Shown here is a 132-nucleotide sequence from Caenorhabditis elegans, a member of the family "Caenorhabditis snoRNA ceN92". It is annotated as an H/ACA-box small nucleolar RNA.
RNA sequence: UUGCACCUACCAAUUAUAUCGGAAGAUUUUGAAGUCAUAGUUUUCCUAUCGUAGUGUGCAAUAAAAACCGUUCUACUGCCACACGGGUACUGGCCUUGAAGCUGUAUCGGUUCCAAAGUUGUUCGAACAAUU
Numbered sequence: 001u002u003g004c005a006c007c008u009a010c011c012a013a014u015u016a017u018a019u020c021g022g023a024a025g026a027u028u029u030u031g032a033a034g035u036c037a038u039a040g041u042u043u044u045c046c047u048a049u050c051g052u053a054g055u056g057u058g059c060a061a062u063a064a065a066a067a068c069c070g071u072u073c074u075a076c077u078g079c080c081a082c083a084c085g086g087g088u089a090c091u092g093g094c095c096u097u098g099a100a101g102c103u104g105u106a107u108c109g110g111u112u113c114c115a116a117a118g119u120u121g122u123u124c125g126a127a128c129a130a131u132u
Base pairs, nucleotide, nucleotide: 002060003059004058005057006056008054021046022045023044024043025042026041027040028039030037031036075119076118077117083111084110086108087107088106089105090104092103093102094101